[Rfam]
RNA: mir-315 microRNA precursor family
RNA sequence: UGCUUAUAUACUUUUGAUUGUUGCUCAGAAAGCCCUUUUUUUCGAAAUUUUACAGUUGACUUUCGAGCUGCAAUUAAAAACAAAUAAGUU
Dot-bracket structure: .((((((....(((((((.((.((((.(((((.(.......................).))))))))).)).)))))))....)))))).
Numbered sequence: 001u002g003c004u005u006a007u008a009u010a011c012u013u014u015u016g017a018u019u020g021u022u023g024c025u026c027a028g029a030a031a032g033c034c035c036u037u038u039u040u041u042u043c044g045a046a047a048u049u050u051u052a053c054a055g056u057u058g059a060c061u062u063u064c065g066a067g068c069u070g071c072a073a074u075u076a077a078a079a080a081c082a083a084a085u086a087a088g089u090u
Stems, first nucleotide, its partner, number of pairs: 002089006012079007020071002023068004028064005034058001